[Rfam]
RNA sequence: UUCUUAUCCAGAAAGACCGAGGGAAUUGACCCAAUGACGUCUUGGCAACCUGUCACUACCGUGUGAUAAGGUGCCACAUUCAACCCAUUAGCUUGGGAAAGAUAAGUU
Number, nucleotide and partner (000 for none) at each position: 001u000002u000003c106004u105005u104006a103007u102008c101009c000010a000011g000012a000013a043014a042015g041016a040017c039018c000019g000020a000021g032022g031023g030024a000025a000026u083027u082028g081029a080030c023031c022032c021033a000034a000035u000036g000037a000038c000039g017040u016041c015042u014043u013044g075045g074046c073047a072048a000049c071050c070051u000052g067053u066054c065055a000056c000057u000058a000059c000060c000061g000062u000063g000064u000065g054066a053067u052068a000069a000070g050071g049072u047073g046074c045075c044076a000077c000078a000079u100080u029081c028082a027083a026084c097085c096086c095087a094088u000089u000090a000091g000092c000093u000094u087095g086096g085097g084098a000099a000100a079101g008102a007103u006104a005105a004106g003107u000108u000
Background
Rfam assigns this 108-nucleotide RNA sequence from Flavobacterium akiainvivens to the family "SAM riboswitch aptamer (S box leader)". Rfam's curators write: The SAM riboswitch is found upstream of a number of genes which code for proteins involved in methionine or cysteine biosynthesis in Gram-positive bacteria. The SAM riboswitch acts at the level of transcription termination control. The predicted structure consists of a complex stem-loop region followed by a single stem loop terminator region. An alternative and mutually exclusive form involves bases in the 3' segment of helix 1 with those in the 5' region of helix 5 to form a structure termed the anti-terminator form. This entry represents the conserved core of the complex structure involving helices 1-4. Lineage of the source: Bacteria > Flavobacteriia > Flavobacteriales > Flavobacteriaceae > Flavobacterium. The family's consensus secondary structure is taken from published work. A search with the family's covariance model found it, with a score of 74 bits.